[Rfam]
RNA sequence: GGGACAAGUCCCAAUAGAGUCUCGGACAGGGCAUUUACAUACAAGAUAAAUUUGUAAUGCCCUUGCUGAGAUUCCAUUGGUAUCACGUUCC
Numbered sequence: 001g002g003g004a005c006a007a008g009u010c011c012c013a014a015u016a017g018a019g020u021c022u023c024g025g026a027c028a029g030g031g032c033a034u035u036u037a038c039a040u041a042c043a044a045g046a047u048a049a050a051u052u053u054g055u056a057a058u059g060c061c062c063u064u065g066c067u068g069a070g071a072u073u074c075c076a077u078u079g080g081u082a083u084c085a086c087g088u089u090c091c
Base pairs, nucleotide, nucleotide: 001091002090003089004088005087008083009082011080012079013078014077015076017074018073019072020071021070022069023068024067028063029062030061031060032059033058034057035056037055038054039053
The record is a 91-nucleotide RNA from Caenorhabditis remanei, which matches "mir-786 microRNA precursor family" in Rfam. Lineage of the source: Eukaryota > Bilateria > Rhabditina > Rhabditomorpha > Caenorhabditis. Its family is annotated with miRNA-mediated post-transcriptional gene silencing and RISC complex in the Gene Ontology. Pairs were carried over by alignment from the consensus structure, which was predicted with RNAalifold. A reference for the family is Ruby et al. (2006), "Large-scale sequencing reveals 21U-RNAs and additional microRNAs and endogenous siRNAs in C. elegans", Cell.